[Rfam]
Notes
MAT2A 3'UTR stem loop D: a 39-nucleotide sequence from Sarcophilus harrisii. The organism belongs to Sarcophilus, within Eukaryota. A search with the family's covariance model found it, with a score of 34 bits.
RNA sequence: UCUGAUGUAUGGCAAGUAGAGAGAAGCUAUCACUUCAGA
Numbered sequence: 001u002c003u004g005a006u007g008u009a010u011g012g013c014a015a016g017u018a019g020a021g022a023g024a025a026g027c028u029a030u031c032a033c034u035u036c037a038g039a
Base pairs, nucleotide, nucleotide: 001039002038003037004036005035007033008032009030010029011028012027013026